[Rfam]
RNA sequence: CUGCAGACCUUUCCAGCGAGGCGAGCCUGCAGUGGUUAUGUCCUUUCCUAUAGUGUCUGCUAGAGAGACAUGAGGCGGUUUGAGGCCCUGCUGUGACUCUUCAUGGCAGGGUUAUAUGUAAACCUCAGACAAAG
Dot-bracket structure: ..((((((..........(((..((((......))))....)))..........))))))..........(((((..........((((((.(((......))).))))))...........))))).......
The family of this 134-nucleotide RNA sequence from Cottoperca gobio is "Small nucleolar RNA SNORA9".
The family's RNA type in Rfam is H/ACA-box small nucleolar RNA.
ACA9 is a member of the H/ACA class of snoRNA that guide the sites of modification of uridines to pseudouridines.
The match comes from Rfam's covariance-model search (101 bits).
Gene Ontology terms of the family: RNA processing and nucleolus.